[Rfam]
RNA sequence: UUGAAAGGAAGUCAUGCCAAGGGCGCCACGUCCUAUGGCAACGCAUGACUGUCCGACGUCGUGUCAG
Dot-bracket structure: ..........(((((((.......((((.......))))...)))))))...(.(((.....))).)
Numbered sequence: 001u002u003g004a005a006a007g008g009a010a011g012u013c014a015u016g017c018c019a020a021g022g023g024c025g026c027c028a029c030g031u032c033c034u035a036u037g038g039c040a041a042c043g044c045a046u047g048a049c050u051g052u053c054c055g056a057c058g059u060c061g062u063g064u065c066a067g
Stems, first nucleotide, its partner, number of pairs: 011049007025039004053067001055065003

The family of this 67-nucleotide sequence from Metabacillus lacus is "Bacillaceae-1 RNA". Taxonomically the source falls in Metabacillus (Bacteria, Bacillati, Caryophanales, Bacillaceae). The match comes from Rfam's covariance-model search (56 bits). Rfam classes the family as a small RNA.